Shown here is a 113-nucleotide RNA sequence from Nocardia macrotermitis, a member of the family "SAM (S-adenosyl methionine) riboswitch aptamer".
Rfam links the family to the GO terms regulation of gene expression and S-adenosylmethionine metabolic process.
Rfam's curators write: SAM-IV is a mRNA element that regulates gene expression via direct sensing of S-adenosylmethionine (SAM or AdoMet).
The match comes from Rfam's covariance-model search (104 bits).
Taxonomically the source falls in Nocardia (Bacteria, Bacillati, Mycobacteriales, Nocardiaceae).
Its Rfam clan is "SAM clan".
RNA sequence: GGUCAUGAGUACCAGCGCACAGGCCCCGGCUCGCUGGUCGGCAACCCUCCUCCGCGGUGGGGUGCUCCGGGUGACGACCCGGCCGCGUCGAAAAGGCGCGGCAAGUGCGGAUU
Number, nucleotide and partner (000 for none) at each position: 001g079002g078003u077004c076005a000006u000007g000008a000009g039010u000011a038012c037013c036014a035015g034016c033017g000018c000019a000020c000021a000022g031023g030024c000025c000026c000027c000028g000029g000030c023031u022032c000033g016034c015035u014036g013037g012038u011039c009040g066041g065042c064043a000044a000045c062046c061047c060048u000049c057050c056051u000052c000053c000054g000055c000056g050057g049058u000059g000060g047061g046062g045063u000064g042065c041066u040067c000068c000069g000070g000071g000072u000073g000074a000075c000076g004077a003078c002079c001080c000081g000082g102083c101084c100085g099086c098087g097088u096089c095090g000091a000092a000093a000094a000095g089096g088097c087098g086099c085100g084101g083102c082103a000104a000105g000106u000107g000108c000109g000110g000111a000112u000113u000